[Rfam]
Rfam assigns this 81-nucleotide RNA from Caenorhabditis japonica to the family "SmY spliceosomal RNA". The sequence is in the family's curated seed alignment.

RNA sequence: AAUUAUAUCCCAUUGUUACAGGGCCUUUAAGAAGACCCACAGUACAAUUUUUGAAAACCCUGCUCUUUCUAGAUCAGGGUG
Numbered sequence: 001a002a003u004u005a006u007a008u009c010c011c012a013u014u015g016u017u018a019c020a021g022g023g024c025c026u027u028u029a030a031g032a033a034g035a036c037c038c039a040c041a042g043u044a045c046a047a048u049u050u051u052u053g054a055a056a057a058c059c060c061u062g063c064u065c066u067u068u069c070u071a072g073a074u075c076a077g078g079g080u081g
Stems, first nucleotide, its partner, number of pairs: 021038003025034003057080006064073003